[Rfam]
RNA sequence: CGGUGGGGUAGAGGUCGCGGUAUCUAUGAGUAAGACAGAGGAGACAUAGGAAGAUCUAUGAAUCUGUUUGAAAGGAUAUAUCGCCGAAACGAAACUGAGAUUCCUAGCUCACUUCGUUGGGGCUGCUGUCGAAUAGGAGCAGAACUGUCACAUUACAAAGGUAAUGUGGUGUGCUAUCAAAUGG
Numbered sequence: 001c002g003g004u005g006g007g008g009u010a011g012a013g014g015u016c017g018c019g020g021u022a023u024c025u026a027u028g029a030g031u032a033a034g035a036c037a038g039a040g041g042a043g044a045c046a047u048a049g050g051a052a053g054a055u056c057u058a059u060g061a062a063u064c065u066g067u068u069u070g071a072a073a074g075g076a077u078a079u080a081u082c083g084c085c086g087a088a089a090c091g092a093a094a095c096u097g098a099g100a101u102u103c104c105u106a107g108c109u110c111a112c113u114u115c116g117u118u119g120g121g122g123c124u125g126c127u128g129u130c131g132a133a134u135a136g137g138a139g140c141a142g143a144a145c146u147g148u149c150a151c152a153u154u155a156c157a158a159a160g161g162u163a164a165u166g167u168g169g170u171g172u173g174c175u176a177u178c179a180a181a182u183g184g
Stems, first nucleotide, its partner, number of pairs: 007178005017084007025076001033069007088118006096111004119146002123142005129136001148169007